[Rfam]
RNA sequence: AGAGUUAAUCAGCCUAGUUUCAUUGAUCUAAAUAAAUUAAAUCGCUGGAAACGGGGGAACCAUUAACGGGGCUUAUUUCUACUUUUAUUGUAGAAAAGAACAUCUCUCAGUUCUAGCCCGUCAGCUAACCUCGUAGGCAUUGAGAGGAGACUAA
Numbered sequence: 001a002g003a004g005u006u007a008a009u010c011a012g013c014c015u016a017g018u019u020u021c022a023u024u025g026a027u028c029u030a031a032a033u034a035a036a037u038u039a040a041a042u043c044g045c046u047g048g049a050a051a052c053g054g055g056g057g058a059a060c061c062a063u064u065a066a067c068g069g070g071g072c073u074u075a076u077u078u079c080u081a082c083u084u085u086u087a088u089u090g091u092a093g094a095a096a097a098g099a100a101c102a103u104c105u106c107u108c109a110g111u112u113c114u115a116g117c118c119c120g121u122c123a124g125c126u127a128a129c130c131u132c133g134u135a136g137g138c139a140u141u142g143a144g145a146g147g148a149g150a151c152u153a154a
Stems, first nucleotide, its partner, number of pairs: 012138003018050005051134006061068001069119003077095004098113004

This 154-nucleotide RNA from Geminocystis sp. NIES-3708 belongs to the Rfam family "c-di-AMP riboswitch aptamer (ydaO/yuaA leader)". About the family: This family represents a conserved RNA structure found upstream of the ydaO and yuaA genes in Bacillus subtilis and related genes in other bacteria.